[Rfam]
RNA: mir-2970 microRNA precursor family
RNA sequence: UCCACUGCAGACAGUCAGUAGUUGGUCUGGCGUGAGCAUUCAAUCUCAGAUCACCUCUUGCCUGUGCGCAGUGUGCUGAG
Numbered sequence: 001u002c003c004a005c006u007g008c009a010g011a012c013a014g015u016c017a018g019u020a021g022u023u024g025g026u027c028u029g030g031c032g033u034g035a036g037c038a039u040u041c042a043a044u045c046u047c048a049g050a051u052c053a054c055c056u057c058u059u060g061c062c063u064g065u066g067c068g069c070a071g072u073g074u075g076c077u078g079a080g
Stems, first nucleotide, its partner, number of pairs: 003073006011065004016060003020056002023053008